[Rfam]
A member of the RNA family "Archaeal large subunit ribosomal RNA" from Candidatus Mancarchaeum acidiphilum, 243 nucleotides of a longer RNA. Lineage of the source: Archaea > Nanobdellati > Microcaldota > Candidatus Mancarchaeum. Pairs were carried over by alignment from the consensus structure, which is taken from published work. A search with the family's covariance model found it, with a score of 2239 bits.

RNA sequence: AGUGCCGGAGGGUAAGAUCUUCCUAGUACGAGAGGAACGGAAGAUCGGCGCCACUGGUGUACCGGUUGUGAUUGCAUUGCCGGGUAGCUACGCGCCAGAUGAAUAAGUCCUGAAAGCAUCUAAGGACGAAGUCAGACCCGAAACGAGGCACUAGGGCGGUCGCAAUAGACGACUUUGAUAGGAUGGGUGCGUAAGUAGGGAGCUUCGGCGACCUAUGAACAUUCCAUUACUAAAGCCUAAUUA
Numbered sequence: 001a002g003u004g005c006c007g008g009a010g011g012g013u014a015a016g017a018u019c020u021u022c023c024u025a026g027u028a029c030g031a032g033a034g035g036a037a038c039g040g041a042a043g044a045u046c047g048g049c050g051c052c053a054c055u056g057g058u059g060u061a062c063c064g065g066u067u068g069u070g071a072u073u074g075c076a077u078u079g080c081c082g083g084g085u086a087g088c089u090a091c092g093c094g095c096c097a098g099a100u101g102a103a104u105a106a107g108u109c110c111u112g113a114a115a116g117c118a119u120c121u122a123a124g125g126a127c128g129a130a131g132u133c134a135g136a137c138c139c140g141a142a143a144c145g146a147g148g149c150a151c152u153a154g155g156g157c158g159g160u161c162g163c164a165a166u167a168g169a170c171g172a173c174u175u176u177g178a179u180a181g182g183a184u185g186g187g188u189g190c191g192u193a194a195g196u197a198g199g200g201a202g203c204u205u206c207g208g209c210g211a212c213c214u215a216u217g218a219a220c221a222u223u224c225c226a227u228u229a230c231u232a233a234a235g236c237c238u239a240a241u242u243a
Base pairs, nucleotide, nucleotide: 001152002151003150004149005148006147010139011138012137013136016046017045018044019043020042021041022040023039047096048095049094050093051092055090056089057088062083063082064081065080066079067076068075069074100134101133102132107127108126109125110124111123154238155237156236157235158174159173160172161171162170179232180231181230182228183227184226185225186224187222188221189220192217195216196215197214198213199212202209